[Rfam]
The family of this 130-nucleotide RNA from Chromatocurvus halotolerans is "RtT RNA". NCBI's taxonomy places the organism under Bacteria, Pseudomonadota, Cellvibrionales, Halieaceae, Chromatocurvus. Rfam 15.1 lists 651 matches to the family in 204 species. The match comes from Rfam's covariance-model search (63 bits). This family represents a bacterial cis-regulatory element known as RtT RNA. The exact function of RtT is unknown although it is thought that it may be involved in changing the cellular response in relation to amino acid starvation. The base pairs follow the family's consensus structure, which is taken from published work. The literature on the family includes a 1991 paper in Nucleic Acids Res by Bosl and Kersten, "A novel RNA product of the tyrT operon of Escherichia coli".

RNA sequence: UGAGUGUGUUGGACGGGGUGGGCUCGAACCACAAGGUUUGACGGAGGCGCGAAGCGCCGAAGAGCGUCGCCACAGGCGACGACCCGGAGGGUGAGGGCCAAAGGCCCGAAUUAUCCACCCCCCUCCACCA
Numbered sequence: 001u002g003a004g005u006g007u008g009u010u011g012g013a014c015g016g017g018g019u020g021g022g023c024u025c026g027a028a029c030c031a032c033a034a035g036g037u038u039u040g041a042c043g044g045a046g047g048c049g050c051g052a053a054g055c056g057c058c059g060a061a062g063a064g065c066g067u068c069g070c071c072a073c074a075g076g077c078g079a080c081g082a083c084c085c086g087g088a089g090g091g092u093g094a095g096g097g098c099c100a101a102a103g104g105c106c107c108g109a110a111u112u113a114u115c116c117a118c119c120c121c122c123c124u125c126c127a128c129c130a
Base pairs, nucleotide, nucleotide: 015121016120017119018118019117020116021115032090037088038087039086040085044058065081066080067079068078069077070076